Record summary: This 36-nucleotide sequence from Vombatus ursinus belongs to the Rfam family "Iron response element I". NCBI's taxonomy places the organism under Eukaryota, Craniata, Sarcopterygii, Amniota, Vombatus. The family's consensus secondary structure is taken from published work. On this family, see Hentze et al., Science 1987: "Identification of the iron-responsive element for the translational regulation of human ferritin mRNA".

RNA sequence: CGGUUUCCUGUUUCAACAAUGCUUGAACUGAACCCG
Numbered sequence: 001c002g003g004u005u006u007c008c009u010g011u012u013u014c015a016a017c018a019a020u021g022c023u024u025g026a027a028c029u030g031a032a033c034c035c036g
Stems, first nucleotide, its partner, number of pairs: 001036003005032003010028001012027005017021001